Shown here is a 46-nucleotide RNA sequence from Lentisphaera araneosa, a member of the family "Acido-Lenti-1 RNA". Rfam's curators put it in the seed alignment. NCBI's taxonomy places the organism under Bacteria, Lentisphaerota, Lentisphaeria, Lentisphaera, Lentisphaera araneosa. By type it is a small RNA.
RNA sequence: CCUAGCUCUGGCGAGCCAGGCUAAGUUAUGUCGUGCUUUCAGCACU
Numbered sequence: 001c002c003u004a005g006c007u008c009u010g011g012c013g014a015g016c017c018a019g020g021c022u023a024a025g026u027u028a029u030g031u032c033g034u035g036c037u038u039u040c041a042g043c044a045c046u
Stems, first nucleotide, its partner, number of pairs: 001020003005016004033045005